[Rfam]
RNA sequence: GUGCCUUAAACUAAUGAGUAAGGAAAUCUAACGUGCCUUGGUAACGCUUGGCACUACCAAGUAUUCCUGGUGCCAAUUUUUGGCGGCUUACAGGUCGUCCCUGUGCGGCUUGCUUACUUUCGCAGGCUGCUGGGUUGUUGUGAUCUGCCCC
Numbered sequence: 001g002u003g004c005c006u007u008a009a010a011c012u013a014a015u016g017a018g019u020a021a022g023g024a025a026a027u028c029u030a031a032c033g034u035g036c037c038u039u040g041g042u043a044a045c046g047c048u049u050g051g052c053a054c055u056a057c058c059a060a061g062u063a064u065u066c067c068u069g070g071u072g073c074c075a076a077u078u079u080u081u082g083g084c085g086g087c088u089u090a091c092a093g094g095u096c097g098u099c100c101c102u103g104u105g106c107g108g109c110u111u112g113c114u115u116a117c118u119u120u121c122g123c124a125g126g127c128u129g130c131u132g133g134g135u136u137g138u139u140g141u142g143a144u145c146u147g148c149c150c151c
Base pairs, nucleotide, nucleotide: 004023005022006021007020008019033054034053035052036051037050040047055072056071057070058069059068085151086150089147092146093145094144095143096142097141098140101134105130106129107128109126110125111124112123113122
Dot-bracket structure: ...(((((..........))))).........(((((..(......)..)))))(((((........)))))............((..(..(((((((..(...(((.(((((........))))).)))...).....))))))))..))